[Rfam]
RNA sequence: AGAUUUCGCAACGGCAAUCUCCUCCCUCCGCCGAAGCGAAUAAAAUCUGCGAACUUCCUCCCAAUAUCGCAGGUUUUCCAAACGACACCCGCCGGUCCUCCCCCGGCGGGUGUUGUUG
Numbered sequence: 001a002g003a004u005u006u007c008g009c010a011a012c013g014g015c016a017a018u019c020u021c022c023u024c025c026c027u028c029c030g031c032c033g034a035a036g037c038g039a040a041u042a043a044a045a046u047c048u049g050c051g052a053a054c055u056u057c058c059u060c061c062c063a064a065u066a067u068c069g070c071a072g073g074u075u076u077u078c079c080a081a082a083c084g085a086c087a088c089c090c091g092c093c094g095g096u097c098c099u100c101c102c103c104c105g106g107c108g109g110g111u112g113u114u115g116u117u118g
Stems, first nucleotide, its partner, number of pairs: 007038003012033004043076010085113011

The family of this 118-nucleotide RNA from Aureimonas fodinaquatilis is "Alphaproteobacterial ar14". It scores 68 bits against the family's covariance model. Pairs were carried over by alignment from the consensus structure. The source organism's lineage runs through Bacteria, Pseudomonadati, Alphaproteobacteria, Aurantimonadaceae and Aureimonas.